mir-393 microRNA precursor family: a 156-nucleotide RNA from Raphanus sativus.
The source organism's lineage runs through Eukaryota, Viridiplantae, Spermatophyta, eudicotyledons and Raphanus.
The family has 27 seed sequences and 1,052 matches in Rfam 15.1.
Rfam links the family to the GO terms miRNA-mediated post-transcriptional gene silencing and RISC complex.
RNA sequence: AGAGAAAGGAUCCAAAGGGAUCGCAUUGAUCCUAAUUAAGCUGAAUUUAUUCCCAAAUAAUUGUUAUAUUUUUCUCAAUCUAAAGACUAAAGAUACAAAAAGUCCCAAAAAUCUGCUUCGUUUUCAGGAUCAUGCGAUCUCUUUGGCUUCAUCCUU
Number, nucleotide and partner (000 for none) at each position: 001a000002g156003a155004g154005a000006a152007a000008g150009g149010a148011u000012c146013c145014a144015a143016a142017g141018g140019g139020a138021u137022c000023g135024c134025a133026u132027u000028g131029a130030u129031c128032c127033u000034a000035a000036u000037u000038a124039a123040g122041c000042u000043g000044a000045a000046u000047u000048u000049a000050u000051u000052c000053c000054c000055a000056a000057a000058u000059a000060a000061u000062u000063g000064u000065u000066a000067u000068a000069u000070u000071u000072u000073u000074c000075u000076c000077a000078a000079u000080c000081u000082a000083a000084a000085g000086a000087c000088u000089a000090a000091a000092g000093a000094u000095a000096c000097a000098a000099a000100a000101a000102g000103u000104c000105c000106c000107a000108a000109a000110a000111a000112u000113c000114u000115g000116c000117u000118u000119c000120g000121u000122u040123u039124u038125c000126a000127g032128g031129a030130u029131c028132a026133u025134g024135c023136g000137a021138u020139c019140u018141c017142u016143u015144u014145g013146g012147c000148u010149u009150c008151a000152u006153c000154c004155u003156u002